[Rfam]
RNA sequence: UGCCCCUACCUGUGAUGAAAACAAGUGUUGGUAGGGACAUCUGAGAAAGCUGAUGAAUGCCAACACAGCUGAGUCGGGGCU
Dot-bracket structure: .((((.......................................................................)))).